[Rfam]
RNA: Small nucleolar RNA U3
Organism: Triplophysa rosa
RNA sequence: AGGACUAUACUUUCAGGGAUCAUUUCUAUAGUUUUCUUACUUGGAAAUGUGUUUCGUAAGUGUUUGUUUCCCAACCCACGAUGAUGAGCUUUGGUGCUUCUUUUAGAGCGUGAAUCUGGCACAUAGUGGUGAUUCGGUUCACGUGCUUUGUGCUGUUGAUGAAUGUUCUUUAUUGCUUUGGCGAUAUUGAGGAAAGGAGCAUGAUCUGAGUGGU
Numbered sequence: 001a002g003g004a005c006u007a008u009a010c011u012u013u014c015a016g017g018g019a020u021c022a023u024u025u026c027u028a029u030a031g032u033u034u035u036c037u038u039a040c041u042u043g044g045a046a047a048u049g050u051g052u053u054u055c056g057u058a059a060g061u062g063u064u065u066g067u068u069u070c071c072c073a074a075c076c077c078a079c080g081a082u083g084a085u086g087a088g089c090u091u092u093g094g095u096g097c098u099u100c101u102u103u104u105a106g107a108g109c110g111u112g113a114a115u116c117u118g119g120c121a122c123a124u125a126g127u128g129g130u131g132a133u134u135c136g137g138u139u140c141a142c143g144u145g146c147u148u149u150g151u152g153c154u155g156u157u158g159a160u161g162a163a164u165g166u167u168c169u170u171u172a173u174u175g176c177u178u179u180g181g182c183g184a185u186a187u188u189g190a191g192g193a194a195a196g197g198a199g200c201a202u203g204a205u206c207u208g209a210g211u212g213g214u
Stems, first nucleotide, its partner, number of pairs: 001041002004038001007034001009032003015027004049065001055062001076213004094202011108166003118154004125147003129142004171186006